[Rfam]
The record is a 54-nucleotide RNA from Oculatella sp. FACHB-28, which matches "Nitrogen stress-induced RNA 1" in Rfam. The pairing is the family consensus, mapped onto this sequence. For this family Rfam cites "Heterocyst-specific transcription of NsiR1, a non-coding RNA encoded in a tandem array of direct repeats in cyanobacteria" (Ionescu et al., J Mol Biol, 2010).
RNA sequence: UGGUAGAUGCACCCUGAUUAAAACCCUGGAGUUAACCCUCUGGGGUUUUUCUUU
Dot-bracket structure: .(((......))).........(((((((((......)))))))))........
Numbered sequence: 001u002g003g004u005a006g007a008u009g010c011a012c013c014c015u016g017a018u019u020a021a022a023a024c025c026c027u028g029g030a031g032u033u034a035a036c037c038c039u040c041u042g043g044g045g046u047u048u049u050u051c052u053u054u
Stems, first nucleotide, its partner, number of pairs: 002013003023046009